[Rfam]
RNA sequence: ACCGCUAAGCCAUCUCUCCAGCCUUAAAUUAAAUUUUACUUUUAAAAUCAGUAAUGGGGCUGGAGAGAUGGCUUAGCGGU
Numbered sequence: 001a002c003c004g005c006u007a008a009g010c011c012a013u014c015u016c017u018c019c020a021g022c023c024u025u026a027a028a029u030u031a032a033a034u035u036u037u038a039c040u041u042u043u044a045a046a047a048u049c050a051g052u053a054a055u056g057g058g059g060c061u062g063g064a065g066a067g068a069u070g071g072c073u074u075a076g077c078g079g080u
Base pairs, nucleotide, nucleotide: 002079003078004077005076006075007074008073009072010071011070012069013068014067015066016065017064018063019062020061021060022059023058024057
RNA: mir-3473 microRNA precursor family
Organism: Jaculus jaculus